[Rfam]
RNA: Small nucleolar RNA snoR97
RNA sequence: GAUGAAAUAUGGUGAUGGAGGCUGAAGAACUCGGAAAUGUUUGUGUUGCCAUCAGCUUCAUCUCCUGAUCUAUGGGUUUGGAGUUAAAUAACAACACGACAUUU
Numbered sequence: 001g002a003u004g005a006a007a008u009a010u011g012g013u014g015a016u017g018g019a020g021g022c023u024g025a026a027g028a029a030c031u032c033g034g035a036a037a038u039g040u041u042u043g044u045g046u047u048g049c050c051a052u053c054a055g056c057u058u059c060a061u062c063u064c065c066u067g068a069u070c071u072a073u074g075g076g077u078u079u080g081g082a083g084u085u086a087a088a089u090a091a092c093a094a095c096a097c098g099a100c101a102u103u104u
Stems, first nucleotide, its partner, number of pairs: 042098007054085006062076003